The family of this 168-nucleotide RNA from Paenibacillus durus is "FMN riboswitch aptamer (RFN element)". Pairs were carried over by alignment from the consensus structure, which is taken from published work.
RNA sequence: ACAAUCCUUCAGGGCAGGGUGAAAUUCCCUACCGGCGGUGAUGAUUCGUAUGACGCGGGAGCGGCAUACGCAAGACAAGUCCGCUACCCGGAACGCGCUUGCCGCGCGGACGGUGGACCCGGUGAGAUUCCGGGACCGACAGUAUAGUCUGGAUGGAAGAAGGAGAGA
Numbered sequence: 001a002c003a004a005u006c007c008u009u010c011a012g013g014g015c016a017g018g019g020u021g022a023a024a025u026u027c028c029c030u031a032c033c034g035g036c037g038g039u040g041a042u043g044a045u046u047c048g049u050a051u052g053a054c055g056c057g058g059g060a061g062c063g064g065c066a067u068a069c070g071c072a073a074g075a076c077a078a079g080u081c082c083g084c085u086a087c088c089c090g091g092a093a094c095g096c097g098c099u100u101g102c103c104g105c106g107c108g109g110a111c112g113g114u115g116g117a118c119c120c121g122g123u124g125a126g127a128u129u130c131c132g133g134g135a136c137c138g139a140c141a142g143u144a145u146a147g148u149c150u151g152g153a154u155g156g157a158a159g160a161a162g163g164a165g166a167g168a
Base pairs, nucleotide, nucleotide: 005164006163007162008161009160010159017029018028019027031148032147033138034137035084036083037082038081079136080135088113089112118134119133120132121131122130140151141150142149